[Rfam]
RNA: t44 RNA
Organism: Alcanivorax borkumensis
RNA sequence: AUGAGUGGGGAAGGAAAUCACACAUGCCCCGUCACAUAGCCCUGGGUGCCUUCUGGUCUGUAAGUUAGGCCGAUUUGGUUGGGUUUAUGCGGGGGCGUGGAGGCCUAAC
Numbered sequence: 001a002u003g004a005g006u007g008g009g010g011a012a013g014g015a016a017a018u019c020a021c022a023c024a025u026g027c028c029c030c031g032u033c034a035c036a037u038a039g040c041c042c043u044g045g046g047u048g049c050c051u052u053c054u055g056g057u058c059u060g061u062a063a064g065u066u067a068g069g070c071c072g073a074u075u076u077g078g079u080u081g082g083g084u085u086u087a088u089g090c091g092g093g094g095g096c097g098u099g100g101a102g103g104c105c106u107a108a109c
Stems, first nucleotide, its partner, number of pairs: 023099008035089005040083003048079003